[Rfam]
RNA sequence: CACUAUAGCUAACUUGUCGCGUGGUUUGAUAGAGGAUCAUGAGGAAAGUCCGGACACCAUAGUGCAGUACAGCGGGUAACGCCCGUCGUUUCAGUUUUCUGAAAAAGGACCAGUGCAACAGAAAGUAUGUACAGUUAGGCUGUAGUGAAACCAGGUAAACUCUGUAUGGUGCAAUGCUAUGUAUAUCAGCUGUUAAGAGUUGCACGCUCGAUGCUGAGGGGUAAGCAGAUAGAGGUUUGUGGCAACACAAACCCUAGAUAAAUGACAAGUCUCGACAGAAUCCGGCUUAUCGGCUAUUAUUUAAA
Number, nucleotide and partner (000 for none) at each position: 001c000002a300003c000004u000005a297006u296007a295008g294009c293010u292011a290012a270013c269014u268015u267016g266017u265018c264019g000020c041021g040022u039023g038024g037025u036026u035027u034028g000029a000030u000031a000032g000033a000034g027035g026036a025037u024038c023039a022040u021041g020042a000043g000044g000045a000046a288047a287048g286049u000050c285051c284052g283053g282054a281055c171056a170057c169058c168059a000060u000061a000062g205063u204064g203065c202066a000067g167068u166069a165070c164071a163072g086073c085074g084075g083076g082077u000078a000079a000080c000081g000082c076083c075084c074085g073086u072087c107088g000089u104090u103091u102092c101093a100094g099095u000096u000097u000098u000099c094100u093101g092102a091103a090104a089105a000106a000107g087108g162109a161110c000111c000112a000113g160114u159115g156116c155117a000118a000119c000120a000121g000122a000123a000124a000125g000126u000127a000128u000129g000130u144131a143132c142133a141134g140135u139136u000137a000138g000139g135140c134141u133142g132143u131144a130145g000146u000147g000148a000149a000150a000151c000152c000153a000154g000155g116156u115157a000158a000159a114160c113161u109162c108163u071164g070165u069166a068167u067168g058169g057170u056171g055172c000173a000174a000175u227176g226177c225178u224179a000180u000181g000182u000183a000184u000185a000186u217187c216188a215189g214190c213191u000192g000193u000194u000195a000196a000197g209198a208199g207200u206201u000202g065203c064204a063205c062206g200207c199208u198209c197210g000211a000212u000213g190214c189215u188216g187217a186218g000219g000220g000221g000222u000223a000224a178225g177226c176227a175228g000229a000230u000231a000232g000233a000234g253235g252236u251237u250238u249239g248240u247241g246242g000243c000244a000245a000246c241247a240248c239249a238250a237251a236252c235253c234254c000255u000256a000257g000258a000259u000260a000261a000262a000263u000264g018265a017266c016267a015268a014269g013270u012271c000272u000273c000274g000275a000276c000277a000278g000279a000280a000281u054282c053283c052284g051285g050286c048287u047288u046289a000290u011291c000292g010293g009294c008295u007296a006297u005298u000299a000300u002301u000302u000303a000304a000305a000
A member of the RNA family "Bacterial RNase P class A" from Flavobacteriaceae bacterium Ap0902, 305 nucleotides long. From the family's description: Ribonuclease P (RNase P) is a ubiquitous endoribonuclease, found in archaea, bacteria and eukarya as well as chloroplasts and mitochondria. The source organism's lineage runs through Bacteria, Pseudomonadati, Flavobacteriia, Flavobacteriales and Flavobacteriaceae.